A member of the RNA family "Purine riboswitch aptamer" from Erysipelothrix sp. HDW6C, 97 nucleotides long. It scores 52 bits against the family's covariance model. Riboswitches are metabolite binding domains within certain messenger RNAs that serve as precision sensors for their corresponding targets. Allosteric rearrangement of mRNA structure is mediated by ligand binding, and this results in modulation of gene expression. A class of riboswitches that selectively recognises guanine and becomes saturated at concentrations as low as 5 nM. In Bacillus subtilis, this mRNA motif is located on at least five separate transcriptional units that together encode 17 genes that are mostly involved in purine transport and purine nucleotide biosynthesis. It has also been shown that some members of this family are specific for adenine instead. Hence this family are termed purine riboswitches. Pairs were carried over by alignment from the consensus structure, which is taken from published work. The source organism's lineage runs through Bacteria, Bacillota, Erysipelotrichales, Erysipelotrichaceae and Erysipelothrix.
RNA sequence: GGUAUACUGUCCUUAUUCCGUUAUAUAAUGUCCAAAUUGGUGGGCAGUCUCUACACUUAACCGUAAAUUAAGUACUAUGACGUUUCUACGUUUGAGA
Numbered sequence: 001g002g003u004a005u006a007c008u009g010u011c012c013u014u015a016u017u018c019c020g021u022u023a024u025a026u027a028a029u030g031u032c033c034a035a036a037u038u039g040g041u042g043g044g045c046a047g048u049c050u051c052u053a054c055a056c057u058u059a060a061c062c063g064u065a066a067a068u069u070a071a072g073u074a075c076u077a078u079g080a081c082g083u084u085u086c087u088a089c090g091u092u093u094g095a096g097a
Stems, first nucleotide, its partner, number of pairs: 019082007029046006055073006